[Rfam]
Shown here is a 53-nucleotide sequence from Halolamina salifodinae, a member of the family "leuA-Halobacteria RNA". NCBI's taxonomy places the organism under Archaea, Methanobacteriota, Halobacteria, Haloferacaceae, Halolamina. The match comes from Rfam's covariance-model search (52 bits).
RNA sequence: GGCUCUUGAGGAUAGAGGAAGUCGCCCGACGGCGGCUGAUCGAGAAAUCGGUC
Numbered sequence: 001g002g003c004u005c006u007u008g009a010g011g012a013u014a015g016a017g018g019a020a021g022u023c024g025c026c027c028g029a030c031g032g033c034g035g036c037u038g039a040u041c042g043a044g045a046a047a048u049c050g051g052u053c
Stems, first nucleotide, its partner, number of pairs: 020037007